[Rfam]
RNA sequence: GUUUCAUUCAUGAUGGUGCUCCCUCCAAACCUGCAUGAAGGAGCACCUGAUGUCCGGGAAAAC
Number, nucleotide and partner (000 for none) at each position: 001g063002u062003u061004u060005c000006a000007u000008u000009c000010a000011u000012g000013a000014u000015g047016g046017u045018g044019c043020u042021c041022c040023c000024u038025c000026c000027a000028a000029a000030c037031c000032u000033g000034c000035a000036u000037g030038a024039a000040g022041g021042a020043g019044c018045a017046c016047c015048u000049g000050a000051u000052g000053u000054c000055c000056g000057g000058g000059a000060a004061a003062a002063c001

A member of the RNA family "Selenocysteine insertion sequence 1" from Microcebus murinus, 63 nucleotides long. On this family, see Walczak et al., RNA 1996: "A novel RNA structural motif in the selenocysteine insertion element of eukaryotic selenoprotein mRNAs".